[Rfam]
RNA sequence: UCGAAGUCAGGCGAUGGAUCCCGCCCGAGCCCGUUCCCUCCGGCUCGAACCGCCCUCCUGGGGCCGAUGGUUCCUGACCACAC
Numbered sequence: 001u002c003g004a005a006g007u008c009a010g011g012c013g014a015u016g017g018a019u020c021c022c023g024c025c026c027g028a029g030c031c032c033g034u035u036c037c038c039u040c041c042g043g044c045u046c047g048a049a050c051c052g053c054c055c056u057c058c059u060g061g062g063g064c065c066g067a068u069g070g071u072u073c074c075u076g077a078c079c080a081c082a083c
Stems, first nucleotide, its partner, number of pairs: 010025004016074003020070002052064004
Fluoride riboswitch aptamer (crcB RNA motif): an 83-nucleotide RNA from Streptomyces formicae. The base pairs follow the family's consensus structure, which is taken from published work. Rfam links the family to the GO terms response to fluoride and positive regulation of gene expression. Lineage of the source: Bacteria > Bacillati > Actinomycetota > Kitasatosporales > Streptomyces.